The family of this 135-nucleotide sequence from Kryptolebias marmoratus is "Small nucleolar RNA SNORA8". About the family: ACA8 is a member of the H/ACA class of snoRNA that guide the sites of modification of uridines to pseudouridines. Its Rfam clan is "SNORA8 clan". Its family is annotated with RNA processing and nucleolus in the Gene Ontology. It is annotated as an H/ACA-box small nucleolar RNA. Taxonomically the source falls in Kryptolebias (Eukaryota, Neoteleostei, Percomorphaceae, Ovalentaria).

RNA sequence: AGCACUGUUGUAUCUGCAGCCAGCUGCUCCAUCAGCUGGUUUGUUUAAAUGCCGGUGCUAAAGAAACUCAGCGUCAGGCAUCGUUGGUCUCCUCUCUGCCGUGUCUGGAGUCCUGGUAUCGAUGCUGAAACAUAC
Numbered sequence: 001a002g003c004a005c006u007g008u009u010g011u012a013u014c015u016g017c018a019g020c021c022a023g024c025u026g027c028u029c030c031a032u033c034a035g036c037u038g039g040u041u042u043g044u045u046u047a048a049a050u051g052c053c054g055g056u057g058c059u060a061a062a063g064a065a066a067c068u069c070a071g072c073g074u075c076a077g078g079c080a081u082c083g084u085u086g087g088u089c090u091c092c093u094c095u096c097u098g099c100c101g102u103g104u105c106u107g108g109a110g111u112c113c114u115g116g117u118a119u120c121g122a123u124g125c126u127g128a129a130a131c132a133u134a135c
Base pairs, nucleotide, nucleotide: 002058003057004056005055006054007053013051015049016044017043018042019041021039022037023036024035025034026033062123066119068116069115070114071113077105078104079103080102081101